[Rfam]
RNA sequence: AACUAGCCCCGAUUGCAGCGACAUCCUUUUUGUGAGGAGGAACGACGAGCAAAAAGAUACAGCGGAAAGCGGGAAAUAGC
Number, nucleotide and partner (000 for none) at each position: 001a000002a000003c000004u000005a000006g000007c000008c000009c072010c071011g070012a000013u068014u067015g000016c000017a000018g063019c062020g000021a000022c000023a058024u057025c056026c000027u000028u054029u053030u052031u051032g050033u000034g000035a000036g000037g000038a000039g000040g000041a000042a000043c000044g000045a000046c000047g000048a000049g000050c032051a031052a030053a029054a028055a000056g025057a024058u023059a000060c000061a000062g019063c018064g000065g000066a000067a014068a013069g000070c011071g010072g009073g000074a000075a000076a000077u000078a000079g000080c000
The record is an 80-nucleotide RNA, which matches "Flavo-1 RNA" in Rfam. Rfam's curators put it in the seed alignment. The base pairs follow the family's consensus structure, which is taken from published work.